Shown here is a 102-nucleotide RNA from Salsuginibacillus halophilus, a member of the family "Purine riboswitch aptamer". The source organism's lineage runs through Bacteria, Bacillota, Bacilli, Bacillaceae and Salsuginibacillus. Riboswitches are metabolite binding domains within certain messenger RNAs that serve as precision sensors for their corresponding targets.
RNA sequence: CAAAUUGAUCGCAAGACCCCUCGUAUAAUCUUGGGAAUAUGGCCCAUAAGUCUCUACCCGGCGACCGUAAAUUGCUGGACUAUGAGGGAAAGCAGAAACAUA
Numbered sequence: 001c002a003a004a005u006u007g008a009u010c011g012c013a014a015g016a017c018c019c020c021u022c023g024u025a026u027a028a029u030c031u032u033g034g035g036a037a038u039a040u041g042g043c044c045c046a047u048a049a050g051u052c053u054c055u056a057c058c059c060g061g062c063g064a065c066c067g068u069a070a071a072u073u074g075c076u077g078g079a080c081u082a083u084g085a086g087g088g089a090a091a092g093c094a095g096a097a098a099c100a101u102a
Stems, first nucleotide, its partner, number of pairs: 018088008029049001032046004058078007